The record is a 132-nucleotide RNA sequence from Calidris pygmaea, which matches "Small nucleolar RNA SNORA17" in Rfam. Rfam links the family to the GO terms nucleolus and RNA processing. By type it is an H/ACA-box small nucleolar RNA. For this family Rfam cites "Mapping to nucleotide resolution of pseudouridine residues in large subunit ribosomal RNAs from representative eukaryotes, prokaryotes, archaebacteria, mitochondria and chloroplasts" (Ofengand and Bakin, J Mol Biol, 1997). snoRNA ACA 17 belongs to the H/ACA family of snoRNAs and is predicted to guide pseudouridylation of the 28S rRNA at positions U4659 and U4598. It shares the same host gene together with ACA43. NB This family has a high threshold value to exclude a large number of closely related sequences that do not appear to have conserved H and ACA boxes, and may be pseudogenes. The family is grouped with related families in Rfam's "SNORA17 clan". Pairs were carried over by alignment from the consensus structure, which was predicted with RNAalifold.
[Rfam]
RNA sequence: CCCUCCACCCAGAAGGAUGCUGGUGUGGCACGCAGUGUCCCAUCGGCCUCCUGAGCAGAGGGAGUGGAACGGGCUGUGGAGGUGAUGGGGGAAGAGGAACUACCUCCUUCGGAAACUUUGCAGCCUGUCAUU
Numbered sequence: 001c002c003c004u005c006c007a008c009c010c011a012g013a014a015g016g017a018u019g020c021u022g023g024u025g026u027g028g029c030a031c032g033c034a035g036u037g038u039c040c041c042a043u044c045g046g047c048c049u050c051c052u053g054a055g056c057a058g059a060g061g062g063a064g065u066g067g068a069a070c071g072g073g074c075u076g077u078g079g080a081g082g083u084g085a086u087g088g089g090g091g092a093a094g095a096g097g098a099a100c101u102a103c104c105u106c107c108u109u110c111g112g113a114a115a116c117u118u119u120g121c122a123g124c125c126u127g128u129c130a131u132u
Stems, first nucleotide, its partner, number of pairs: 002062003006058001008055001010053002014049002019047004024042002027039003070127008082116002086112001088110002090107003094103001